Description:
Molybdenum/Tungsten riboswitch aptamer (Moco RNA motif): a 137-nucleotide RNA sequence from a Plautia stali symbiont. The source organism's lineage runs through Bacteria, Pseudomonadati, Pseudomonadota, Gammaproteobacteria and Enterobacteriaceae.

Nucleotides: 137
Base pairs, nucleotide, nucleotide: 003131004130006128011123012121013120015118017117020057021056022055025052026051027050029049030048031047035044036043037042059073060072061071062070063069076101077100078099079098080097081096082095083094086091102113103112
Number, partner (000 for none) and nucleotide at each position: 001000a002000a003131u004130g005000a006128c007000a008000a009000c010000a011123g012121a013120c014000u015118c016000c017117c018000a019000a020057g021056c022055c023000u024000u025052g026051c027050g028000u029049u030048c031047c032000u033000a034000a035044g036043u037042c038000g039000u040000g041000u042037g043036a044035u045000a046000u047031g048030g049029a050027u051026g052025c053000c054000u055022g056021g057020c058000c059073g060072c061071a062070g063069c064000c065000g066000c067000g068000a069063g070062c071061u072060g073059c074000c075000a076101a077100g078099g079098u080097g081096c082095a083094g084000a085000a086091a087000g088000a089000a090000a091086u092000g093000a094083c095082u096081g097080c098079a099078u100077c101076u102113c103112c104000c105000g106000u107000a108000c109000u110000u111000u112103g113102g114000a115000a116000a117017g118015g119000u120013g121012u122000u123011c124000a125000g126000g127000u128006g129000c130004c131003a132000c133000a134000a135000u136000u137000u

A search with the family's covariance model found it, with a score of 86 bits. The base pairs follow the family's consensus structure, which is taken from published work.